[Rfam]
RNA sequence: UUAUGCUUGCGCACAUGAACCGCUUCCUGUCCGCUCUCCGACGUCGCCGCUCGCCGCUCCUCCCGGAUGCCGCCGGCUCGUCACGGACUCGCGCGUAACCCACCUCCGCUUCACCGGUUACGCACAAGCUGUUCGAUCCACCAGCCACGGCCUUCCGUGGCUUUUUU
Numbered sequence: 001u002u003a004u005g006c007u008u009g010c011g012c013a014c015a016u017g018a019a020c021c022g023c024u025u026c027c028u029g030u031c032c033g034c035u036c037u038c039c040g041a042c043g044u045c046g047c048c049g050c051u052c053g054c055c056g057c058u059c060c061u062c063c064c065g066g067a068u069g070c071c072g073c074c075g076g077c078u079c080g081u082c083a084c085g086g087a088c089u090c091g092c093g094c095g096u097a098a099c100c101c102a103c104c105u106c107c108g109c110u111u112c113a114c115c116g117g118u119u120a121c122g123c124a125c126a127a128g129c130u131g132u133u134c135g136a137u138c139c140a141c142c143a144g145c146c147a148c149g150g151c152c153u154u155c156c157g158u159g160g161c162u163u164u165u166u167u
Stems, first nucleotide, its partner, number of pairs: 005138001007136002010095003014091001031086003039080003043077003046073002049070002054065001143162008
Rfam assigns this 167-nucleotide RNA from Burkholderia vietnamiensis to the family "Burkholderia sRNA 7". The literature on the family includes a 2017 paper in Microbiology by Ghosh et al., "Identification of novel small RNAs in Burkholderia cenocepacia KC-01 expressed under iron limitation and oxidative stress conditions". Did not show any change in expression in iron-depletion and hydrogen peroxide (oxidative stress) treatment. Constitutively expressed. Possibly targets the GTPase, ObgE. Lineage of the source: Bacteria > Pseudomonadati > Betaproteobacteria > Burkholderia cepacia complex > Burkholderia vietnamiensis.